[Rfam]
RNA sequence: CUGGGAAGAGAGGCAAUCGCUCUUAUUUUUUAAGUAAGGGAGGAAAGUCUGGACUUCAUAGGAGAGGAUACCAGCGAAAAGCUGGGGGCCGUAAGGCUACGGAAAGUGUAACAGAAAAUAUACCGCUGUUUAACUUUUAGUUAAAUAGACAGGGUGAAAUGCUAACUUUAAGAGGAAGCUCUACUUGAGGAGACUCAAGAGAUGACAAACCCUAUCCGAAGCAAGACCGAAUUAAAGCUAUAUAGUUCUCCGCUAUGCUUUAUAAGGGUCGCUUGAGCAUGUUAGUGAUAAUGUGCCUAGAUGAAUGAUUGCCCAACGGUCGUAAGACCGUGAGACAGAAUCCGGCUUAAAAUCUUCCCAGACUU
Numbered sequence: 001c002u003g004g005g006a007a008g009a010g011a012g013g014c015a016a017u018c019g020c021u022c023u024u025a026u027u028u029u030u031u032a033a034g035u036a037a038g039g040g041a042g043g044a045a046a047g048u049c050u051g052g053a054c055u056u057c058a059u060a061g062g063a064g065a066g067g068a069u070a071c072c073a074g075c076g077a078a079a080a081g082c083u084g085g086g087g088g089c090c091g092u093a094a095g096g097c098u099a100c101g102g103a104a105a106g107u108g109u110a111a112c113a114g115a116a117a118a119u120a121u122a123c124c125g126c127u128g129u130u131u132a133a134c135u136u137u138u139a140g141u142u143a144a145a146u147a148g149a150c151a152g153g154g155u156g157a158a159a160u161g162c163u164a165a166c167u168u169u170a171a172g173a174g175g176a177a178g179c180u181c182u183a184c185u186u187g188a189g190g191a192g193a194c195u196c197a198a199g200a201g202a203u204g205a206c207a208a209a210c211c212c213u214a215u216c217c218g219a220a221g222c223a224a225g226a227c228c229g230a231a232u233u234a235a236a237g238c239u240a241u242a243u244a245g246u247u248c249u250c251c252g253c254u255a256u257g258c259u260u261u262a263u264a265a266g267g268g269u270c271g272c273u274u275g276a277g278c279a280u281g282u283u284a285g286u287g288a289u290a291a292u293g294u295g296c297c298u299a300g301a302u303g304a305a306u307g308a309u310u311g312c313c314c315a316a317c318g319g320u321c322g323u324a325a326g327a328c329c330g331u332g333a334g335a336c337a338g339a340a341u342c343c344g345g346c347u348u349a350a351a352a353u354c355u356u357c358c359c360a361g362a363c364u365u
Base pairs, nucleotide, nucleotide: 001361002360003359004358005357006356007355008354009353012313013312014311015310016309017308018307020040021039022038023037024036025035026034027033028032045348046347047346049345050344051343052342053341054221055220056219057218061251062250063249064248066217067216068215069214070213071085072084073083074082075081086100087098088097089096090095101212102211106210107209108206109205123153124152126148127147128146129145130144131143132142133141161179162178163177166175182201184199185198186197187196188195189194225270226269227268228267233262234261235260236259237258238257242256243255244254245253246252277296278295279294280293281292282291283290284289
RNA: Bacterial RNase P class A
Organism: Neochlamydia sp. S13